The family of this 595-nucleotide part of an RNA from Auriculariales sp. MPI-PUGE-AT-0066 is "Eukaryotic large subunit ribosomal RNA". Lineage of the source: Eukaryota > Fungi > Agaricomycotina > Agaricomycetes > Auriculariales. On this family, see Yusupov et al., Science 2001: "Crystal structure of the ribosome at 5.5 A resolution".
RNA sequence: CGGGGAAAGAAGACCCUGUUGAGCUUGACUCUAGUUUGACAUUGUGAAAAGACAUAGAGGGUGUAGAAUAAGUGGGAGCUUCGGCGCCGUUGAAAUACCACUACCUCUAUUGUCUUUUUACUUAAUCAAUGAGGCGGAGCUGAGGUUAAUAGCCUCACCUUUUGGCUUCAAGGUCCUAUACGGGCUGAUCCGGGUUGAUGACAUUGUCAGGUGGGGAGUUUGGCUGGGGCGGCACAUCUGUUAAAAGAUAACGCAGGUGUCCUAAGGGGGACUCAUUGAGAACAGAAAUCUCAAGUAGAACAAAAGGGUAAAAGUCCCCUUGAUUUUGAUUUUCAGUGUGAAUACAAACCAUGAAAGUGUGGCCUAUCGAUCCUUUAGUCCCUCGGAAUUUGAGGCUAGAGGUGCCAGAAAAGUUACCACAGGGAUAACUGGCUUGUGGCAGCCAAGCGUUCAUAGCGACGUUGCUUUUUGAUCCUUCGAUGUCGGCUCUUCCUAUCAUACCGAAGCAGAAUUCGGUAAGCGUUGGAUUGUUCACCCACUAAUAGGGAACGUGAGCUGGGUUUAGACCGUCGUGAGACAGGUUAGUUUUACCCUA
Numbered sequence: 001c002g003g004g005g006a007a008a009g010a011a012g013a014c015c016c017u018g019u020u021g022a023g024c025u026u027g028a029c030u031c032u033a034g035u036u037u038g039a040c041a042u043u044g045u046g047a048a049a050a051g052a053c054a055u056a057g058a059g060g061g062u063g064u065a066g067a068a069u070a071a072g073u074g075g076g077a078g079c080u081u082c083g084g085c086g087c088c089g090u091u092g093a094a095a096u097a098c099c100a101c102u103a104c105c106u107c108u109a110u111u112g113u114c115u116u117u118u119u120a121c122u123u124a125a126u127c128a129a130u131g132a133g134g135c136g137g138a139g140c141u142g143a144g145g146u147u148a149a150u151a152g153c154c155u156c157a158c159c160u161u162u163u164g165g166c167u168u169c170a171a172g173g174u175c176c177u178a179u180a181c182g183g184g185c186u187g188a189u190c191c192g193g194g195u196u197g198a199u200g201a202c203a204u205u206g207u208c209a210g211g212u213g214g215g216g217a218g219u220u221u222g223g224c225u226g227g228g229g230c231g232g233c234a235c236a237u238c239u240g241u242u243a244a245a246a247g248a249u250a251a252c253g254c255a256g257g258u259g260u261c262c263u264a265a266g267g268g269g270g271a272c273u274c275a276u277u278g279a280g281a282a283c284a285g286a287a288a289u290c291u292c293a294a295g296u297a298g299a300a301c302a303a304a305a306g307g308g309u310a311a312a313a314g315u316c317c318c319c320u321u322g323a324u325u326u327u328g329a330u331u332u333u334c335a336g337u338g339u340g341a342a343u344a345c346a347a348a349c350c351a352u353g354a355a356a357g358u359g360u361g362g363c364c365u366a367u368c369g370a371u372c373c374u375u376u377a378g379u380c381c382c383u384c385g386g387a388a389u390u391u392g393a394g395g396c397u398a399g400a401g402g403u404g405c406c407a408g409a410a411a412a413g414u415u416a417c418c419a420c421a422g423g424g425a426u427a428a429c430u431g432g433c434u435u436g437u438g439g440c441a442g443c444c445a446a447g448c449g450u451u452c453a454u455a456g457c458g459a460c461g462u463u464g465c466u467u468u469u470u471g472a473u474c475c476u477u478c479g480a481u482g483u484c485g486g487c488u489c490u491u492c493c494u495a496u497c498a499u500a501c502c503g504a505a506g507c508a509g510a511a512u513u514c515g516g517u518a519a520g521c522g523u524u525g526g527a528u529u530g531u532u533c534a535c536c537c538a539c540u541a542a543u544a545g546g547g548a549a550c551g552u553g554a555g556c557u558g559g560g561u562u563u564a565g566a567c568c569g570u571c572g573u574g575a576g577a578c579a580g581g582u583u584a585g586u587u588u589u590a591c592c593c594u595a
Base pairs, nucleotide, nucleotide: 003594004593005592007589008588015423016422017421018420020419021418022415023414024413025412026411028219029218030217031216035211036210037209038208039207040206041205044121045120046119047118048117049116050115051114052113053112054110055109056108057107058106059105060104071102072101073100074099075098078085079084125199126198127197128196129195135192136191137190138189143155144154145153146152147151172186173185174184175183176182222235223233224232225231236258237257238256239255240254241253261362262361267319268318269317270316271315272314273299274298276294277293278292279291280290281289300309301308324348325347326346329343330342331341332340350359351358352357373401374400375399376398377397378396381395382394383393384392432473434471436470438466439465440464441463442462443461447457448456484559485557486556487555488554489551490548491547492546493545494544497522500517501516502515503514504513505512524538525537526536528534565583566582567581568580569578570577571576